A member of the RNA family "ROOL RNA" from Ligilactobacillus salivarius, 543 nucleotides long. The match comes from Rfam's covariance-model search (130 bits). Rfam's curators write: Firmicutes, Fusobacteria (1 example), Tenericutes (1 example). The base pairs follow the family's consensus structure, which is taken from published work. NCBI's taxonomy places the organism under Bacteria, Bacillota, Bacilli, Lactobacillaceae, Ligilactobacillus salivarius. It is annotated as a small RNA.
RNA sequence: UUAGUAUAUAAGUGUACCGAUGAAGCUAGUGGAUGAGGUGUGACAAGCCGCCUAGCCAUACGACUCUUAAUAACUACUAUGACGAAAUAUACGGAUACGUUUAUUUUUUCUAAUUUCCACUUGGGUAGUACUAAUUGGGAGCAACGAAAAAAGUUGUGUAGAGAGAAGCAAGGGGACUCAUAUCUGAAACUAAGACACUUGCCGUCAGGGAUUCGCAAUAUGCCAUCUUCAGUUAAUUAAGGCUGAUUACCUUAGGAACCAAAAGAAGAAUAUCAACUAAGAAUUCGUGUCGUGAAGUUGUGGUGACGCAACUAUAACUGACGAGUAAGGUUUGAGUAGCCAAAAUCGACAAUCUUACAUUAACUGGAACAUUGCACAUGUUUGGUGAAAAUUGGAUAGGAAAAGAUCUAUGCCCUGAACUUGAAAUGCGGACUAGGUCGUGGAAGUUGCUAGCCAUGAUGUGCUAGUCUGAUUCAGUAGUCUAAUAAGUCCAGAUACAAGAGUAUCCCACGUAAGCCAAUACGCGUCGGUUUACAUAAUUUU
Numbered sequence: 001u002u003a004g005u006a007u008a009u010a011a012g013u014g015u016a017c018c019g020a021u022g023a024a025g026c027u028a029g030u031g032g033a034u035g036a037g038g039u040g041u042g043a044c045a046a047g048c049c050g051c052c053u054a055g056c057c058a059u060a061c062g063a064c065u066c067u068u069a070a071u072a073a074c075u076a077c078u079a080u081g082a083c084g085a086a087a088u089a090u091a092c093g094g095a096u097a098c099g100u101u102u103a104u105u106u107u108u109u110c111u112a113a114u115u116u117c118c119a120c121u122u123g124g125g126u127a128g129u130a131c132u133a134a135u136u137g138g139g140a141g142c143a144a145c146g147a148a149a150a151a152a153g154u155u156g157u158g159u160a161g162a163g164a165g166a167a168g169c170a171a172g173g174g175g176a177c178u179c180a181u182a183u184c185u186g187a188a189a190c191u192a193a194g195a196c197a198c199u200u201g202c203c204g205u206c207a208g209g210g211a212u213u214c215g216c217a218a219u220a221u222g223c224c225a226u227c228u229u230c231a232g233u234u235a236a237u238u239a240a241g242g243c244u245g246a247u248u249a250c251c252u253u254a255g256g257a258a259c260c261a262a263a264a265g266a267a268g269a270a271u272a273u274c275a276a277c278u279a280a281g282a283a284u285u286c287g288u289g290u291c292g293u294g295a296a297g298u299u300g301u302g303g304u305g306a307c308g309c310a311a312c313u314a315u316a317a318c319u320g321a322c323g324a325g326u327a328a329g330g331u332u333u334g335a336g337u338a339g340c341c342a343a344a345a346u347c348g349a350c351a352a353u354c355u356u357a358c359a360u361u362a363a364c365u366g367g368a369a370c371a372u373u374g375c376a377c378a379u380g381u382u383u384g385g386u387g388a389a390a391a392u393u394g395g396a397u398a399g400g401a402a403a404a405g406a407u408c409u410a411u412g413c414c415c416u417g418a419a420c421u422u423g424a425a426a427u428g429c430g431g432a433c434u435a436g437g438u439c440g441u442g443g444a445a446g447u448u449g450c451u452a453g454c455c456a457u458g459a460u461g462u463g464c465u466a467g468u469c470u471g472a473u474u475c476a477g478u479a480g481u482c483u484a485a486u487a488a489g490u491c492c493a494g495a496u497a498c499a500a501g502a503g504u505a506u507c508c509c510a511c512g513u514a515a516g517c518c519a520a521u522a523c524g525c526g527u528c529g530g531u532u533u534a535c536a537u538a539a540u541u542u543u
Stems, first nucleotide, its partner, number of pairs: 009538002012535003016531007025056005035051001037049003059171001062169001064168002078113001081110002085106005091100003115140005121134004144157004177524001178502002181499001183497001185495001191489001198329004203323006209286006226269005232259003240252003244275004288351004297312005333391001339386006395414001397410002416476003429471006436465001437460002440457004